RNA sequence: AUCGUAGUUUGGAUUAGCAACCCAAACAUAUAGCCGCUUUGGUAGAAUAGAAUGUAGCUGGAGUACAGGAAAACCGACCCAUAAGUCUAUUCGUAAAUCCCACAG
Number, nucleotide and partner (000 for none) at each position: 001a000002u077003c000004g000005u000006a000007g027008u026009u025010u024011g023012g022013a000014u000015u000016a000017g000018c000019a000020a000021c000022c012023c011024a010025a009026a008027c007028a000029u000030a000031u000032a000033g000034c000035c000036g000037c000038u000039u000040u102041g100042g099043u097044a000045g092046a091047a090048u089049a088050g087051a086052a000053u000054g000055u000056a000057g000058c000059u081060g080061g079062a000063g000064u076065a000066c000067a000068g075069g074070a000071a000072a000073a000074c069075c068076g064077a002078c000079c061080c060081a059082u000083a000084a000085g000086u051087c050088u049089a048090u047091u046092c045093g000094u000095a000096a000097a043098u000099c042100c041101c000102a040103c000104a000105g000
Notes: A member of the RNA family "cow-rumen-2 RNA", 105 nucleotides long. It is one of the family's seed sequences. By type it is a small RNA.